[Rfam]
RNA sequence: CUGUAAGGACGACCUUGCACCUCAUCUUUCACGUCGGGGACGGCCCCA
Numbered sequence: 001c002u003g004u005a006a007g008g009a010c011g012a013c014c015u016u017g018c019a020c021c022u023c024a025u026c027u028u029u030c031a032c033g034u035c036g037g038g039g040a041c042g043g044c045c046c047c048a
Base pairs, nucleotide, nucleotide: 002019003018004017005016006015007014008013036047037046038045039044
RNA: Guanidine-II riboswitch aptamer (mini-ykkC)
Organism: Paraburkholderia acidisoli